[Rfam]
RNA sequence: AUAUUGAAGGGUGAUGGAGUUCGCCUUUGAAGUCCUGCGUGCCCAGAUGUGGUAUGCAGGAUCGCAAAAACGCUUUUUAGCUGAUGACUCCUACAGGUGU
Numbered sequence: 001a002u003a004u005u006g007a008a009g010g011g012u013g014a015u016g017g018a019g020u021u022c023g024c025c026u027u028u029g030a031a032g033u034c035c036u037g038c039g040u041g042c043c044c045a046g047a048u049g050u051g052g053u054a055u056g057c058a059g060g061a062u063c064g065c066a067a068a069a070a071c072g073c074u075u076u077u078u079a080g081c082u083g084a085u086g087a088c089u090c091c092u093a094c095a096g097g098u099g100u
Stems, first nucleotide, its partner, number of pairs: 010025004016091006072081003
The family of this 100-nucleotide RNA from Aminipila luticellarii is "Fluoride riboswitch aptamer (crcB RNA motif)". A search with the family's covariance model found it, with a score of 47 bits. The family's consensus secondary structure is taken from published work. The organism belongs to Aminipila, within Bacteria.